[Rfam]
RNA sequence: AGGGGCUUGGGUGGUCCCGCCAGCGCGGCGUCCCAACACGGUCGCCAAUCCGACGCGCUGGGCCAAUGGCGAGACCGACCCUAUCCGUG
Numbered sequence: 001a002g003g004g005g006c007u008u009g010g011g012u013g014g015u016c017c018c019g020c021c022a023g024c025g026c027g028g029c030g031u032c033c034c035a036a037c038a039c040g041g042u043c044g045c046c047a048a049u050c051c052g053a054c055g056c057g058c059u060g061g062g063c064c065a066a067u068g069g070c071g072a073g074a075c076c077g078a079c080c081c082u083a084u085c086c087g088u089g
Base pairs, nucleotide, nucleotide: 002088004086005085007083009081010080011079013064014063015062023058024057025056026055027054029052030051040076041075042072043071044070045069046068
RNA: c-di-GMP-II-GAG riboswitch aptamer